[Rfam]
RNA sequence: CCUGGGGCGUUGCCCCAGGCUGUAAUAACCCGCCCCUUCGGGGCU
Numbered sequence: 001c002c003u004g005g006g007g008c009g010u011u012g013c014c015c016c017a018g019g020c021u022g023u024a025a026u027a028a029c030c031c032g033c034c035c036c037u038u039c040g041g042g043g044c045u
Stems, first nucleotide, its partner, number of pairs: 001019008032044005
Dot-bracket structure: ((((((((...))))))))............(((((...))))).
RNA: Acido-Lenti-1 RNA
Organism: Desulfonema ishimotonii